A member of the RNA family "MIR408 microRNA precursor family" from Chenopodium quinoa, 123 nucleotides long. A search with the family's covariance model found it, with a score of 69 bits. The source organism's lineage runs through Eukaryota, Magnoliopsida, eudicotyledons, Atripliceae and Chenopodium.

RNA sequence: UAUGGGAGAGCUAGAAGCUAGGGAAGCGGUUGGGCAUGAGAUGGAUCAAUCAACAUUGUAGAUAUUGAUGUUGUUGCUCUUCCCAUGCACUGCCUCUUCCCUGGCUCUUCUUUAUCGCUCUUU
Numbered sequence: 001u002a003u004g005g006g007a008g009a010g011c012u013a014g015a016a017g018c019u020a021g022g023g024a025a026g027c028g029g030u031u032g033g034g035c036a037u038g039a040g041a042u043g044g045a046u047c048a049a050u051c052a053a054c055a056u057u058g059u060a061g062a063u064a065u066u067g068a069u070g071u072u073g074u075u076g077c078u079c080u081u082c083c084c085a086u087g088c089a090c091u092g093c094c095u096c097u098u099c100c101c102u103g104g105c106u107c108u109u110c111u112u113u114a115u116c117g118c119u120c121u122u123u
Stems, first nucleotide, its partner, number of pairs: 016106002019103007028094003032090001034088005040083001044079002